The family of this 130-nucleotide sequence from Lupinus angustifolius is "Small nucleolar RNA U19".
Rfam links the family to the GO terms RNA processing and nucleolus.
A reference for the family is Marker et al. (2002), "Experimental RNomics: identification of 140 candidates for small non-messenger RNAs in the plant Arabidopsis thaliana", Curr Biol.
Rfam classes the family as an H/ACA-box small nucleolar RNA.
The family has 3 seed sequences and 421 matches in Rfam 15.1.
The source organism's lineage runs through Eukaryota, Tracheophyta, Gunneridae, core genistoids and Lupinus.
RNA sequence: AUGUGGCUUAGUUAGGAGGCACAUAUUAAUCUGAAUCAAAUUCAUUUUUGGUUCAUUUAUAGAGAAAGACAUUUUGAGAAGACAUUAUGGUAUCUUAAAUCUAUUGUCCUUCAAGAAGUCUUUCACAUUA
Numbered sequence: 001a002u003g004u005g006g007c008u009u010a011g012u013u014a015g016g017a018g019g020c021a022c023a024u025a026u027u028a029a030u031c032u033g034a035a036u037c038a039a040a041u042u043c044a045u046u047u048u049u050g051g052u053u054c055a056u057u058u059a060u061a062g063a064g065a066a067a068g069a070c071a072u073u074u075u076g077a078g079a080a081g082a083c084a085u086u087a088u089g090g091u092a093u094c095u096u097a098a099a100u101c102u103a104u105u106g107u108c109c110u111u112c113a114a115g116a117a118g119u120c121u122u123u124c125a126c127a128u129u130a
Base pairs, nucleotide, nucleotide: 004021005020007018008017009016034053035052036051037050038049064124065123066122067121068120069119070118073115074114075113076112078111079110081108082107083106084105086103